[Rfam]
RNA sequence: GUGACACCCAAAUAUAGUAGCACUUUUCACCGAUUUCUCUGAAGAGUGCUUCUACAUUUGAGUACCAC
Numbered sequence: 001g002u003g004a005c006a007c008c009c010a011a012a013u014a015u016a017g018u019a020g021c022a023c024u025u026u027u028c029a030c031c032g033a034u035u036u037c038u039c040u041g042a043a044g045a046g047u048g049c050u051u052c053u054a055c056a057u058u059u060g061a062g063u064a065c066c067a068c
Stems, first nucleotide, its partner, number of pairs: 006063002009060004015054003019050006026043003
RNA: mir-290 microRNA precursor family